RNA sequence: UCCCAGUGAAAAAACAUUCACACAUCUUACCUCUUGUUCUAGUUCCAGAAACUGUAAAGGUGAACCUACUGGGGGCUGGCUUGAGGAGAAAAGGGAAUCUUGUUCCAGAAGGAACUUUAUGAGGGAU
Numbered sequence: 001u002c003c004c005a006g007u008g009a010a011a012a013a014a015c016a017u018u019c020a021c022a023c024a025u026c027u028u029a030c031c032u033c034u035u036g037u038u039c040u041a042g043u044u045c046c047a048g049a050a051a052c053u054g055u056a057a058a059g060g061u062g063a064a065c066c067u068a069c070u071g072g073g074g075g076c077u078g079g080c081u082u083g084a085g086g087a088g089a090a091a092a093g094g095g096a097a098u099c100u101u102g103u104u105c106c107a108g109a110a111g112g113a114a115c116u117u118u119a120u121g122a123g124g125g126a127u
Stems, first nucleotide, its partner, number of pairs: 001126004
Dot-bracket structure: ((((......................................................................................................................)))).